[Rfam]
RNA: Purine riboswitch aptamer
Organism: Kurthia sibirica
RNA sequence: AAACAUAAAUAAGCAUUCACUCAUAUAAUAGUGGGAAUAUGGCCUACGAGUAUCUACCGAUUCACCGUAAAUGAAUUGACUAUGGGAAGCAUCACUCAUACU
Numbered sequence: 001a002a003a004c005a006u007a008a009a010u011a012a013g014c015a016u017u018c019a020c021u022c023a024u025a026u027a028a029u030a031g032u033g034g035g036a037a038u039a040u041g042g043c044c045u046a047c048g049a050g051u052a053u054c055u056a057c058c059g060a061u062u063c064a065c066c067g068u069a070a071a072u073g074a075a076u077u078g079a080c081u082a083u084g085g086g087a088a089g090c091a092u093c094a095c096u097c098a099u100a101c102u
Stems, first nucleotide, its partner, number of pairs: 020086006029049001031047005058078007